[Rfam]
RNA sequence: UGCACUUAUGUGUGCUUUUGCUUAACUGUGGACAAAGACUAAAAGUAGAUGUAAAAGCUAAAUCCUCUUUUGCAUCUCAGAACUCAUUGUUCAGUAUGUUUUGAUACAAAUAAGAGUGAUGUA
Numbered sequence: 001u002g003c004a005c006u007u008a009u010g011u012g013u014g015c016u017u018u019u020g021c022u023u024a025a026c027u028g029u030g031g032a033c034a035a036a037g038a039c040u041a042a043a044a045g046u047a048g049a050u051g052u053a054a055a056a057g058c059u060a061a062a063u064c065c066u067c068u069u070u071u072g073c074a075u076c077u078c079a080g081a082a083c084u085c086a087u088u089g090u091u092c093a094g095u096a097u098g099u100u101u102u103g104a105u106a107c108a109a110a111u112a113a114g115a116g117u118g119a120u121g122u123a
Stems, first nucleotide, its partner, number of pairs: 001053004006048004011043001014039001016037005026030001062120003066116001068115005078103005085098003
The family of this 123-nucleotide sequence from Neotoma lepida is "Small nucleolar RNA SNORA40". The source organism's lineage runs through Eukaryota, Bilateria, Craniata, Cricetidae and Neotoma. Rfam links the family to the GO terms nucleolus and RNA processing. By type it is an H/ACA-box small nucleolar RNA. A reference for the family is Ofengand and Bakin (1997), "Mapping to nucleotide resolution of pseudouridine residues in large subunit ribosomal RNAs from representative eukaryotes, prokaryotes, archaebacteria, mitochondria and chloroplasts", J Mol Biol.